RNA sequence: AGCUUUCUGAAUCCGUGCUGAGAUUUUGUCAGACACCGAACCAUUAGUGCUGAACAGACCUCCAGGAUAAGUGAAGUU
Numbered sequence: 001a002g003c004u005u006u007c008u009g010a011a012u013c014c015g016u017g018c019u020g021a022g023a024u025u026u027u028g029u030c031a032g033a034c035a036c037c038g039a040a041c042c043a044u045u046a047g048u049g050c051u052g053a054a055c056a057g058a059c060c061u062c063c064a065g066g067a068u069a070a071g072u073g074a075a076g077u078u
Stems, first nucleotide, its partner, number of pairs: 002077005008071001011068003016064002020062003024058003029053002

mir-3492 microRNA precursor family: a 78-nucleotide sequence from Schistosoma mattheei. The match comes from Rfam's covariance-model search (54 bits). The family's consensus secondary structure was predicted with RNAalifold. Its family is annotated with miRNA-mediated post-transcriptional gene silencing and RISC complex in the Gene Ontology.